[Rfam]
Shown here is an 86-nucleotide sequence from Vigna angularis, a member of the family "MIR164 microRNA precursor family".
RNA sequence: UGGAGAAGGGGAGCACGUGCAAAUUGGUUCAAUGGCGUUUAGGAGAGCCAAGAAUUGCACACUUGCACGUGCCCUGCUUCUCCAAC
Numbered sequence: 001u002g003g004a005g006a007a008g009g010g011g012a013g014c015a016c017g018u019g020c021a022a023a024u025u026g027g028u029u030c031a032a033u034g035g036c037g038u039u040u041a042g043g044a045g046a047g048c049c050a051a052g053a054a055u056u057g058c059a060c061a062c063u064u065g066c067a068c069g070u071g072c073c074c075u076g077c078u079u080c081u082c083c084a085a086c
Stems, first nucleotide, its partner, number of pairs: 001084008010075002013072010024061001
The base pairs follow the family's consensus structure, which was predicted with RNAalifold. Its family is annotated with RISC complex and miRNA-mediated post-transcriptional gene silencing in the Gene Ontology. The source organism's lineage runs through Eukaryota, Viridiplantae, Magnoliopsida, Phaseoleae and Vigna angularis. The family has 2 seed sequences and 201 matches in Rfam 15.1.